[Rfam]
RNA: Plastid-psbA-2 3UTR RNA
RNA sequence: AUAAGGGAGCAAUAACCACUUUCUUGUUCUAAACAAGAUGGGGUAUUGCUCCUUUAUUUCU
Numbered sequence: 001a002u003a004a005g006g007g008a009g010c011a012a013u014a015a016c017c018a019c020u021u022u023c024u025u026g027u028u029c030u031a032a033a034c035a036a037g038a039u040g041g042g043g044u045a046u047u048g049c050u051c052c053u054u055u056a057u058u059u060c061u
Stems, first nucleotide, its partner, number of pairs: 001057014016042002022038005